[Rfam]
RNA sequence: UUUUAAGAUAGAGGUGCAUCUUUUAUAAGUACUCACAGGAACGGUUUCAGGAUCGGAUGAACUGGGAUGAAAGGGUAAGAUGCCGAAGUUUUCGAUUCCCUGAAGUCUCGAAUGCUGGUUGCCUGGUGAAUAACCUUGCAAUUGUCAUCCAAAAGAUGGAGCGCUAUCUGAAAC
Numbered sequence: 001u002u003u004u005a006a007g008a009u010a011g012a013g014g015u016g017c018a019u020c021u022u023u024u025a026u027a028a029g030u031a032c033u034c035a036c037a038g039g040a041a042c043g044g045u046u047u048c049a050g051g052a053u054c055g056g057a058u059g060a061a062c063u064g065g066g067a068u069g070a071a072a073g074g075g076u077a078a079g080a081u082g083c084c085g086a087a088g089u090u091u092u093c094g095a096u097u098c099c100c101u102g103a104a105g106u107c108u109c110g111a112a113u114g115c116u117g118g119u120u121g122c123c124u125g126g127u128g129a130a131u132a133a134c135c136u137u138g139c140a141a142u143u144g145u146c147a148u149c150c151a152a153a154a155g156a157u158g159g160a161g162c163g164c165u166a167u168c169u170g171a172a173a174c
Stems, first nucleotide, its partner, number of pairs: 006169006016083007024075001033067002036064003087116003091112005098105001117143006125135003145159005
The record is a 174-nucleotide sequence from Alkalibacter saccharofermentans, which matches "Lysine riboswitch aptamer" in Rfam. About the family: Riboswitches are metabolite binding domains within certain messenger RNAs that serve as precision sensors for their corresponding targets. Rfam links the family to the GO term lysine biosynthetic process. A search with the family's covariance model found it, with a score of 101 bits.